[Rfam]
The record is a 76-nucleotide sequence from Rosa chinensis, which matches "Small nucleolar RNA Z155" in Rfam.
The literature on the family includes a 2003 paper in Nucleic Acids Res by Chen et al., "The high diversity of snoRNAs in plants: identification and comparative study of 120 snoRNA genes from Oryza sativa".
A search with the family's covariance model found it, with a score of 53 bits.
The base pairs follow the family's consensus structure.
The organism belongs to Rosa, within Eukaryota.
Gene Ontology terms of the family: RNA processing and nucleolus.
The family has 8 seed sequences and 429 matches in Rfam 15.1.

RNA sequence: CAUUGACGUGAUGAUAUAGUACUCGGAAUUCCAUCAUGUCGAUUAAAAAACUCAGACUACAAUUAUCUGAUCAAUG
Dot-bracket structure: ((((((................................................................))))))